[Rfam]
RNA: Glycine riboswitch aptamer
Nucleotides: 091
Stems, first nucleotide, its partner, number of pairs: 006086008020036004038071003041067002045065003051059002
Number, partner (000 for none) and nucleotide at each position: 001000c002000u003000g004000a005000u006086c007085c008084c009083c010082g011081c012080g013079g014000a015000a016000g017000a018000g019000a020036c021035c022034g023033g024000g025000c026000u027000u028000c029000g030000a031000g032000c033023c034022c035021g036020g037000c038071g039070c040069c041067g042066a043000a044000g045065g046064c047063g048000c049000a050000a051059c052058c053000g054000c055000c056000c057000c058052g059051g060000a061000a062000a063047c064046g065045c066042u067041c068000a069040g070039g071038c072000a073000a074000a075000a076000g077000g078000a079013c080012c081011g082010c083009g084008g085007g086006g087000a088000g089000c090000u091000g